[Rfam]
Source information
A member of the RNA family "Bacteroidete tryptophan peptide leader RNA" from Bacteroides sp. CAG:189, 145 nucleotides long. Gene Ontology terms of the family: S-adenosylmethionine metabolic process and regulation of gene expression. The family's consensus secondary structure is taken from published work. The organism belongs to Bacteroides, within Bacteria. The family's RNA type in Rfam is cis-regulatory leader.

Nucleotides: 145
Stems, first nucleotide, its partner, number of pairs: 036108003040104008049095004056089002059086003066080001068078003
Number, partner (000 for none) and nucleotide at each position: 001000c002000c003000g004000u005000u006000a007000a008000a009000c010000a011000a012000u013000a014000a015000a016000a017000g018000a019000c020000a021000a022000u023000g024000a025000g026000a027000a028000c029000a030000a031000u032000g033000u034000u035000a036108g037107u038106a039000a040104a041103u042102a043101c044100a045099u046098a047097u048000u049095g050094g051093u052092g053000g054000u055000g056089g057088c058000g059086c060085c061084u062000a063000u064000u065000a066080c067000a068078a069077c070076u071000c072000c073000g074000a075000c076070a077069g078068u079000c080066g081000u082000a083000a084061g085060g086059g087000a088057g089056c090000a091000g092052u093051g094050c095049u096000c097047g098046u099045a100044u101043g102042u103041a104040u105000a106038u107037a108036c109000c110000u111000c112000a113000a114000u115000a116000a117000a118000g119000a120000u121000a122000u123000a124000a125000c126000a127000g128000a129000u130000u131000u132000g133000a134000a135000a136000g137000g138000g139000c140000c141000c142000u143000g144000u145000c